[Rfam]
RNA sequence: UUGCUUGAGGGAUGAACAAGUCCCUAACAUCAAUUCAUCAUCCUUCACUUUAUCAGCAUUAGUUUUUUCCUCAUCUUUUGCCGGUCAUGCUGGGAUGAGAAAUAA
Numbered sequence: 001u002u003g004c005u006u007g008a009g010g011g012a013u014g015a016a017c018a019a020g021u022c023c024c025u026a027a028c029a030u031c032a033a034u035u036c037a038u039c040a041u042c043c044u045u046c047a048c049u050u051u052a053u054c055a056g057c058a059u060u061a062g063u064u065u066u067u068u069c070c071u072c073a074u075c076u077u078u079u080g081c082c083g084g085u086c087a088u089g090c091u092g093g094g095a096u097g098a099g100a101a102a103u104a105a
Stems, first nucleotide, its partner, number of pairs: 038098005052085003056081003

The family of this 105-nucleotide RNA sequence from Genlisea aurea is "Small nucleolar RNA snoR99". On this family, see Marker et al., Curr Biol 2002: "Experimental RNomics: identification of 140 candidates for small non-messenger RNAs in the plant Arabidopsis thaliana". NCBI's taxonomy places the organism under Eukaryota, Embryophyta, Magnoliopsida, Pentapetalae, Genlisea. Rfam links the family to the GO terms RNA processing and nucleolus.